[Rfam]
RNA sequence: UCGCAGCCGGCGCCGCGAAGAGCCGGGGACCCACCGUGGAGGCCCAGGGGGAGUCCCCCGUGCCGAAGCGUUCCCGGGGUGAGUCCGCCAUGGAUCCAUCAUGCGCGGUAGGGCGACUCCCCGCCCGAACCCGACAGCUAACCCGGUAGGCGGCCUGUGGAGAGACA
Numbered sequence: 001u002c003g004c005a006g007c008c009g010g011c012g013c014c015g016c017g018a019a020g021a022g023c024c025g026g027g028g029a030c031c032c033a034c035c036g037u038g039g040a041g042g043c044c045c046a047g048g049g050g051g052a053g054u055c056c057c058c059c060g061u062g063c064c065g066a067a068g069c070g071u072u073c074c075c076g077g078g079g080u081g082a083g084u085c086c087g088c089c090a091u092g093g094a095u096c097c098a099u100c101a102u103g104c105g106c107g108g109u110a111g112g113g114c115g116a117c118u119c120c121c122c123g124c125c126c127g128a129a130c131c132c133g134a135c136a137g138c139u140a141a142c143c144c145g146g147u148a149g150g151c152g153g154c155c156u157g158u159g160g161a162g163a164g165a166c167a
Base pairs, nucleotide, nucleotide: 001021002020022147023146024145025144026143027142032076077132078131079130085108086107087106088105111126112125113124114123

About this RNA: A member of the RNA family "c-di-AMP riboswitch aptamer (ydaO/yuaA leader)" from Thermomonospora umbrina, 167 nucleotides long. This family represents a conserved RNA structure found upstream of the ydaO and yuaA genes in Bacillus subtilis and related genes in other bacteria.